[Rfam]
RNA sequence: UGAGUCAGCCGGAUAAUCGCUGCCUGUGACGAAAAUGAUCAGGGGGAGGAAAGUCCGGGCUCCAUUGGGCAGGGUGCCAGCUAACGGCUGGGGGGCGUGAGCCUACGACAAGUGCAGCAGAGAGAAGACCGCCUAAGUUCUUCGGAACCGGUAAGGGUGAAAGGGUGCGGUAAGAGCGCACCGGACCACUGGUAACAGUUGGUUGCAAGGUAAACUCCACCCGGAGCAAGACCAAAUAGGGUUCCUUAUGGUGUGGCCCGCAUCGGAACCGGGUAGGUUGCUCGAGCUUGGGAGCGAUCCCAAGCCUAGACGAAUGAUUAUCGAUCUCCCUCGGGAGAGAACAGAACCCGGCUUACAGGCUGACUCACCCU
Numbered sequence: 001u002g003a004g005u006c007a008g009c010c011g012g013a014u015a016a017u018c019g020c021u022g023c024c025u026g027u028g029a030c031g032a033a034a035a036u037g038a039u040c041a042g043g044g045g046g047a048g049g050a051a052a053g054u055c056c057g058g059g060c061u062c063c064a065u066u067g068g069g070c071a072g073g074g075u076g077c078c079a080g081c082u083a084a085c086g087g088c089u090g091g092g093g094g095g096c097g098u099g100a101g102c103c104u105a106c107g108a109c110a111a112g113u114g115c116a117g118c119a120g121a122g123a124g125a126a127g128a129c130c131g132c133c134u135a136a137g138u139u140c141u142u143c144g145g146a147a148c149c150g151g152u153a154a155g156g157g158u159g160a161a162a163g164g165g166u167g168c169g170g171u172a173a174g175a176g177c178g179c180a181c182c183g184g185a186c187c188a189c190u191g192g193u194a195a196c197a198g199u200u201g202g203u204u205g206c207a208a209g210g211u212a213a214a215c216u217c218c219a220c221c222c223g224g225a226g227c228a229a230g231a232c233c234a235a236a237u238a239g240g241g242u243u244c245c246u247u248a249u250g251g252u253g254u255g256g257c258c259c260g261c262a263u264c265g266g267a268a269c270c271g272g273g274u275a276g277g278u279u280g281c282u283c284g285a286g287c288u289u290g291g292g293a294g295c296g297a298u299c300c301c302a303a304g305c306c307u308a309g310a311c312g313a314a315u316g317a318u319u320a321u322c323g324a325u326c327u328c329c330c331u332c333g334g335g336a337g338a339g340a341a342c343a344g345a346a347c348c349c350g351g352c353u354u355a356c357a358g359g360c361u362g363a364c365u366c367a368c369c370c371u
Stems, first nucleotide, its partner, number of pairs: 001367010011356001012322007020046002023043004051354003055351005060226004067259004072222005077091005092106001093104004107217002112215002114211002129156002131152003137148004164182006183206001184204005189198003230279004240270006250264005286305008
Dot-bracket structure: ((((((((((((((((((.((.((((.............)))).))....[[[.[[[[[((((...[[[[.((((((((((.....)))))(((((....)))).)((...((((.............(((((...((((....)))).)))..)).......((((((.......))))))(((((((((....))).))))).)...))..)))))))))))))...((((......((((((....(((((.]]]]))))))))))).....))))......((((((((....))))))))..........)))))))........................]]]]]]]].).))))))))))....
This 371-nucleotide RNA sequence from Pseudoalteromonas rubra belongs to the Rfam family "Bacterial RNase P class A". The source organism's lineage runs through Bacteria, Pseudomonadota, Gammaproteobacteria, Pseudoalteromonadaceae and Pseudoalteromonas. Clan: RNaseP clan.